[Rfam]
RNA sequence: CGGGUGAACUGUGGUUAAGGAACUCGGCAAAUUACCCCCGUAACUUCGGGAGAAGGGGGACCCCUGCUGGUGACCGGACGUGCUCCGUGAGCUGGCGGUGGUCGCAGUGACCAGGGGGAAGCGACUGUUUAUUAAAAACACAGGUCCAUGCGAAGAAGUAAUUCGAUGUAUAUGGACUGACGCCUGCCCGGUGCUGGAACGUUAAGGGGACCGGUUAACCACUUUGGUGGUGAAGCUGAGAACUUAAGCGCCAGUAAACGGCGGUGGUAACUAUAACCAUCCUAAGGUAGCGAAAUUCCUUGUCGGGUAAGUUCCGACCUGCACGAAUGGCGUAACGACUUCCCCACUGUCUCAACCACAGGCCCG
Numbered sequence: 001c002g003g004g005u006g007a008a009c010u011g012u013g014g015u016u017a018a019g020g021a022a023c024u025c026g027g028c029a030a031a032u033u034a035c036c037c038c039c040g041u042a043a044c045u046u047c048g049g050g051a052g053a054a055g056g057g058g059g060a061c062c063c064c065u066g067c068u069g070g071u072g073a074c075c076g077g078a079c080g081u082g083c084u085c086c087g088u089g090a091g092c093u094g095g096c097g098g099u100g101g102u103c104g105c106a107g108u109g110a111c112c113a114g115g116g117g118g119a120a121g122c123g124a125c126u127g128u129u130u131a132u133u134a135a136a137a138a139c140a141c142a143g144g145u146c147c148a149u150g151c152g153a154a155g156a157a158g159u160a161a162u163u164c165g166a167u168g169u170a171u172a173u174g175g176a177c178u179g180a181c182g183c184c185u186g187c188c189c190g191g192u193g194c195u196g197g198a199a200c201g202u203u204a205a206g207g208g209g210a211c212c213g214g215u216u217a218a219c220c221a222c223u224u225u226g227g228u229g230g231u232g233a234a235g236c237u238g239a240g241a242a243c244u245u246a247a248g249c250g251c252c253a254g255u256a257a258a259c260g261g262c263g264g265u266g267g268u269a270a271c272u273a274u275a276a277c278c279a280u281c282c283u284a285a286g287g288u289a290g291c292g293a294a295a296u297u298c299c300u301u302g303u304c305g306g307g308u309a310a311g312u313u314c315c316g317a318c319c320u321g322c323a324c325g326a327a328u329g330g331c332g333u334a335a336c337g338a339c340u341u342c343c344c345c346a347c348u349g350u351c352u353c354a355a356c357c358a359c360a361g362g363c364c365c366g
Stems, first nucleotide, its partner, number of pairs: 001366004009361008018352003035059005044049001060102003064098008103107001115345007122337002126140003143178008151168001155164003181332004186262003191259002193255005200250003206244002212238004218231005263281006282286001292319001302318006
RNA: Bacterial large subunit ribosomal RNA, nucleotides 1891 to 2256